[Rfam]
The record is a 227-nucleotide RNA sequence from Candidatus Thiomargarita nelsonii, which matches "HNH endonuclease-associated RNA and ORF (HEARO) RNA" in Rfam. Rfam 15.1 lists 952 matches to the family in 249 species. A reference for the family is Weinberg et al. (2009), "Exceptional structured noncoding RNAs revealed by bacterial metagenome analysis", Nature.

RNA sequence: GUCAACAACCCCUCGGCUAAAGACCGAGGGGCUUGUAAGGGCAACCUUAUAAGCCCAGUUGACCAGGUUAGGUGGGAACGAGCUACGUUAGGGACGAAUAUAUAGGCACUCCGUCGAUGCUUCACCAGUUGCGGACUCUGCGGUAAGUCAUUAAACAAGCAUAAGGGUUUAAAGCUAGUGUGGCUUACAUACAAACCGUCUUAUAACAUUGCCGAGGUGAAUUUUAC
Dot-bracket structure: ((((((...((((...(....)....)).))(((((((((....)))))))))....))))))..(((.((((........)))..((((((((((.........((..((((.(((([.[[[[[[.))))))))....)).(((((((((...((.(((.(.(.....).).))).)))))))))))........)))))).)))).).)))..]]]]]].]....